[Rfam]
RNA sequence: AGCUUAUCUGUGAUGUUUUAAAAAAAUGUCUGAACUUAUGAGUCAAUUUGUGAUUCCAAUUUCUAACUGAGAUGAGCA
Numbered sequence: 001a002g003c004u005u006a007u008c009u010g011u012g013a014u015g016u017u018u019u020a021a022a023a024a025a026a027u028g029u030c031u032g033a034a035c036u037u038a039u040g041a042g043u044c045a046a047u048u049u050g051u052g053a054u055u056c057c058a059a060u061u062u063c064u065a066a067c068u069g070a071g072a073u074g075a076g077c078a
Base pairs, nucleotide, nucleotide: 002077003076004075005074006073007072008071
Shown here is a 78-nucleotide sequence from Xenopus laevis, a member of the family "Small nucleolar RNA SNORD72". The organism belongs to Xenopus, within Eukaryota. About the family: snoRNA HBII-240 belongs to the CD family of snoRNAs. It scores 73 bits against the family's covariance model. The family has 16 seed sequences and 726 matches in Rfam 15.1. Pairs were carried over by alignment from the consensus structure.